The record is a 118-nucleotide sequence from Acer saccharum, which matches "U5 spliceosomal RNA" in Rfam.
Rfam links the family to the GO terms U5 snRNP and spliceosomal tri-snRNP complex assembly.
A search with the family's covariance model found it, with a score of 91 bits.
Rfam's curators write: U5 RNA is a component of both types of known spliceosome.
Lineage of the source: Eukaryota > Streptophyta > Pentapetalae > Acereae > Acer.
RNA sequence: AGCCAUGUGGUGAGUACAAAGCGAACUAUUCUUUCGCCUUUUACUAAAGAAUACCGUGUGCUUACCAUUUUAAAUGGCAUACCUCCAUUUUUGGAAGAGUUGUACUUCGAGUACAGCU
Numbered sequence: 001a002g003c004c005a006u007g008u009g010g011u012g013a014g015u016a017c018a019a020a021g022c023g024a025a026c027u028a029u030u031c032u033u034u035c036g037c038c039u040u041u042u043a044c045u046a047a048a049g050a051a052u053a054c055c056g057u058g059u060g061c062u063u064a065c066c067a068u069u070u071u072a073a074a075u076g077g078c079a080u081a082c083c084u085c086c087a088u089u090u091u092u093g094g095a096a097g098a099g100u101u102g103u104a105c106u107u108c109g110a111g112u113a114c115a116g117c118u
Base pairs, nucleotide, nucleotide: 003077004076005075006074008067009066010065011064012063013062014061015060016059017058018057027053028052029051030050031049032048033047034046095118099117100116101115102114103113104112